[Rfam]
RNA sequence: CACUCGGUUUAGAGGGUCCCGGAGAAACAGAUCUUAUUCUAUACCCGAUAAGUACCAAUACGCAAUGGGA
Numbered sequence: 001c002a003c004u005c006g007g008u009u010u011a012g013a014g015g016g017u018c019c020c021g022g023a024g025a026a027a028c029a030g031a032u033c034u035u036a037u038u039c040u041a042u043a044c045c046c047g048a049u050a051a052g053u054a055c056c057a058a059u060a061c062g063c064a065a066u067g068g069g070a
Stems, first nucleotide, its partner, number of pairs: 003022002006019002009016002044069003052061003